[Rfam]
RNA sequence: GAUCACUGUACAACAAGGGUGAAACCCGGGAUCGCUAUAUGGGCAAUGGUUCGAUCCAUUUAGACAGGUUCAGGGAGCUGAGCUUGCUGGCUUGCCCGGUCCAUGUUGGGAGUUGGGUAAUGCAGCCAAAGCGAAGGCUUGGACUUCAUGGCCCGUAGAGUGGAGGACACAGCGUCAGCUUGGUUUCACAGACCAGCGAUAACCUCCCCCUCUCGACAGUGGAAGGAUUCUAAGCCAGUGCACUCUUGGGGCAUACUGCCUGGUGACUCGUUUACAUUGAACAGCCACUUUU
Numbered sequence: 001g002a003u004c005a006c007u008g009u010a011c012a013a014c015a016a017g018g019g020u021g022a023a024a025c026c027c028g029g030g031a032u033c034g035c036u037a038u039a040u041g042g043g044c045a046a047u048g049g050u051u052c053g054a055u056c057c058a059u060u061u062a063g064a065c066a067g068g069u070u071c072a073g074g075g076a077g078c079u080g081a082g083c084u085u086g087c088u089g090g091c092u093u094g095c096c097c098g099g100u101c102c103a104u105g106u107u108g109g110g111a112g113u114u115g116g117g118u119a120a121u122g123c124a125g126c127c128a129a130a131g132c133g134a135a136g137g138c139u140u141g142g143a144c145u146u147c148a149u150g151g152c153c154c155g156u157a158g159a160g161u162g163g164a165g166g167a168c169a170c171a172g173c174g175u176c177a178g179c180u181u182g183g184u185u186u187c188a189c190a191g192a193c194c195a196g197c198g199a200u201a202a203c204c205u206c207c208c209c210c211u212c213u214c215g216a217c218a219g220u221g222g223a224a225g226g227a228u229u230c231u232a233a234g235c236c237a238g239u240g241c242a243c244u245c246u247u248g249g250g251g252c253a254u255a256c257u258g259c260c261u262g263g264u265g266a267c268u269c270g271u272u273u274a275c276a277u278u279g280a281a282c283a284g285c286c287a288c289u290u291u292u
Base pairs, nucleotide, nucleotide: 001033002032003031005020006019007018009016025030037291039289040283041282044279045278046277047276048275049273052270053269054268057265058264059263060262063260065258066257067252069250070249071248072247073246074245076244079242080241082239087238088237089236090235091234092233093232094231096226097225100223101222102221103220104218105217106216107215108214109213110212111211112210115154116153117152118151120149121148122147124145125144127142129140130139131138132137162207163206164205165204166203171200173198174197175196180191181190182189
A member of the RNA family "Plant signal recognition particle RNA" from Camellia sinensis, 292 nucleotides long. A search with the family's covariance model found it, with a score of 123 bits. The family is grouped with related families in Rfam's "SRP clan". The base pairs follow the family's consensus structure, which is taken from published work. The family's RNA type in Rfam is non-coding RNA gene. Taxonomically the source falls in Camellia (Eukaryota, Streptophyta, Gunneridae, Theaceae). Rfam 15.1 lists 4,988 matches to the family in 266 species.